[Rfam]
RNA: MIR8024 microRNA precursor family
Organism: Solanum tuberosum
RNA sequence: UUGGAGGAUUUGAAGACUUUAACAUGCAGACUUGACAAAUUUGAAGACUUUAACUUGCAAAGUUGGAAGAUUUGAAUACUUCAACU
Numbered sequence: 001u002u003g004g005a006g007g008a009u010u011u012g013a014a015g016a017c018u019u020u021a022a023c024a025u026g027c028a029g030a031c032u033u034g035a036c037a038a039a040u041u042u043g044a045a046g047a048c049u050u051u052a053a054c055u056u057g058c059a060a061a062g063u064u065g066g067a068a069g070a071u072u073u074g075a076a077u078a079c080u081u082c083a084a085c086u
Base pairs, nucleotide, nucleotide: 001084002083003082004081005080006079009076010075011074012073013072014071018067019066020065021064025059026058027057028056032053033052034051035050